[Rfam]
Rfam assigns this 75-nucleotide sequence from Crocodylus porosus to the family "Mammalian CPEB3 ribozyme". Rfam links the family to the GO term RNA nuclease activity. The match comes from Rfam's covariance-model search (53 bits). Taxonomically the source falls in Crocodylus (Eukaryota, Craniata, Sauria, Longirostres).

RNA sequence: UCAUGCCAUAAUGGCCAUAGCAGAAGUGCUCACGUCACGGCCCUGUCAGAUUUGAACAGAUCUGUAAAUUGUGCU
Number, nucleotide and partner (000 for none) at each position: 001u000002c000003a000004u000005g000006c000007c000008a000009u000010a000011a000012u000013g042014g041015c040016c039017a000018u000019a075020g074021c073022a072023g000024a070025a069026g038027u037028g036029c000030u000031c000032a000033c000034g000035u000036c028037a027038c026039g016040g015041c014042c013043c000044u000045g000046u000047c064048a063049g062050a061051u060052u059053u058054g000055a000056a000057c000058a053059g052060a051061u050062c049063u048064g047065u000066a000067a000068a000069u025070u024071g000072u022073g021074c020075u019